Overview
SAH (S-adenosyl-L-homocysteine) riboswitch aptamer: a 91-nucleotide RNA sequence from Steroidobacter agaridevorans. It scores 55 bits against the family's covariance model.

RNA sequence: CGAUCCGAGGGGCGCUGCAGCAGUUCCGGAGUUCUUCCGAGACCUGCCAGGCUCGGCUCGCAAGCCUUUUAGGCAACGGCGCCCUCCAACC
Numbered sequence: 001c002g003a004u005c006c007g008a009g010g011g012g013c014g015c016u017g018c019a020g021c022a023g024u025u026c027c028g029g030a031g032u033u034c035u036u037c038c039g040a041g042a043c044c045u046g047c048c049a050g051g052c053u054c055g056g057c058u059c060g061c062a063a064g065c066c067u068u069u070u071a072g073g074c075a076a077c078g079g080c081g082c083c084c085u086c087c088a089a090c091c
Base pairs, nucleotide, nucleotide: 002059003058005056006055007054008053021046022045023044025042026041
Overview: Gene Ontology terms of the family: S-adenosylhomocysteine metabolic process and regulation of gene expression. The family's consensus secondary structure is taken from published work.